[Rfam]
RNA sequence: AGAAGGGCUUCCAUGACGGCAACGUUUCGGGGGCCUUUUUCUUUUGC
Numbered sequence: 001a002g003a004a005g006g007g008c009u010u011c012c013a014u015g016a017c018g019g020c021a022a023c024g025u026u027u028c029g030g031g032g033g034c035c036u037u038u039u040u041c042u043u044u045u046g047c
Stems, first nucleotide, its partner, number of pairs: 005036008015026004

The family of this 47-nucleotide RNA sequence from Agrobacterium tumefaciens is "ctRNA". A reference for the family is Venkova-Canova et al. (2004), "Two discrete elements are required for the replication of a repABC plasmid: an antisense RNA and a stem-loop structure", Mol Microbiol. From the family's description: This family represents a group of ctRNAs (or counter-transcribed RNAs) from p42d and related plasmids. ctRNAs are small, highly structured, antisense sequences which are involved in negative regulation. Members of this family are known to bind to the mRNA of repC causing translational repression. This model contains the predicted stem-loop structure followed by a U-rich tract which is proposed to act as a Rho-independent transcriptional terminator. By type it is an antisense RNA. Lineage of the source: Bacteria > Pseudomonadota > Alphaproteobacteria > Agrobacterium > Agrobacterium tumefaciens complex.